[Rfam]
RNA sequence: GGUUGCGCUGAAGACCUGCUCUCUAGGCCACGCACGGAGGACGCGCGUUCCUCGCGGGCCCCGCGCCCGCCUAGGGGAAAGUCCCCGGACGCGCCGGCAGAGAGUGCCGCGCGCCGCCGGCGCCGCCCGCCCGCCCCGCAGCCUCACGCAGCGCCGCCGAGACGCCCGCCGGGCCGAGCGGGUGAGCGGGGGCGGGCCCUCGUCACGGCCACAGGCACGCAGGUAGUGCGCGUGCGCACCAACACAACGGGGCUCACUCUCAGCGCCGC
Numbered sequence: 001g002g003u004u005g006c007g008c009u010g011a012a013g014a015c016c017u018g019c020u021c022u023c024u025a026g027g028c029c030a031c032g033c034a035c036g037g038a039g040g041a042c043g044c045g046c047g048u049u050c051c052u053c054g055c056g057g058g059c060c061c062c063g064c065g066c067c068c069g070c071c072u073a074g075g076g077g078a079a080a081g082u083c084c085c086c087g088g089a090c091g092c093g094c095c096g097g098c099a100g101a102g103a104g105u106g107c108c109g110c111g112c113g114c115c116g117c118c119g120g121c122g123c124c125g126c127c128c129g130c131c132c133g134c135c136c137c138g139c140a141g142c143c144u145c146a147c148g149c150a151g152c153g154c155c156g157c158c159g160a161g162a163c164g165c166c167c168g169c170c171g172g173g174c175c176g177a178g179c180g181g182g183u184g185a186g187c188g189g190g191g192g193c194g195g196g197c198c199c200u201c202g203u204c205a206c207g208g209c210c211a212c213a214g215g216c217a218c219g220c221a222g223g224u225a226g227u228g229c230g231c232g233u234g235c236g237c238a239c240c241a242a243c244a245c246a247a248c249g250g251g252g253c254u255c256a257c258u259c260u261c262a263g264c265g266c267c268g269c
Stems, first nucleotide, its partner, number of pairs: 002269002005266007014224006022075007037053005080254002083252004096108004111123004125197003133193005143186003154181004164174004226239005
Shown here is a 269-nucleotide sequence from Nothoprocta perdicaria, a member of the family "RNase MRP". It scores 118 bits against the family's covariance model. From the family's description: RNase MRP is an enzymatically active ribonucleoprotein with two distinct roles in eukaryotes. In mitochondria it plays a direct role in the initiation of mitochondrial DNA replication. Pairs were carried over by alignment from the consensus structure, which is taken from published work. The family's RNA type in Rfam is ribozyme. The source organism's lineage runs through Eukaryota, Sarcopterygii, Archelosauria, Archosauria and Nothoprocta.